[Rfam]
RNA sequence: AGCGAAACCCGCCUGCGCGGGUUA
Numbered sequence: 001a002g003c004g005a006a007a008c009c010c011g012c013c014u015g016c017g018c019g020g021g022u023u024a
Stems, first nucleotide, its partner, number of pairs: 006023007
Rfam assigns this 24-nucleotide RNA sequence from Oscillatoriales cyanobacterium M59_W2019_021 to the family "CRISPR RNA direct repeat element". The base pairs follow the family's consensus structure, which was predicted with WAR. Gene Ontology term of the family: defense response.